[Rfam]
RNA sequence: GCUCCCCAAAUCCCUUUCCCAUUGGAUCUGAACACUGGUCUUGGUGGUUGGAAAGGAGGAAAAGUAAUGUUGAAGCUGGUCUCACAGCUGUAUAGUCUGGUAUGUAGUGUGUGUGCUAGUUUCAAAGAGGG
Numbered sequence: 001g002c003u004c005c006c007c008a009a010a011u012c013c014c015u016u017u018c019c020c021a022u023u024g025g026a027u028c029u030g031a032a033c034a035c036u037g038g039u040c041u042u043g044g045u046g047g048u049u050g051g052a053a054a055g056g057a058g059g060a061a062a063a064g065u066a067a068u069g070u071u072g073a074a075g076c077u078g079g080u081c082u083c084a085c086a087g088c089u090g091u092a093u094a095g096u097c098u099g100g101u102a103u104g105u106a107g108u109g110u111g112u113g114u115g116c117u118a119g120u121u122u123c124a125a126a127g128a129g130g131g
Stems, first nucleotide, its partner, number of pairs: 003059002006056002019047005025040004076119005082113001091109003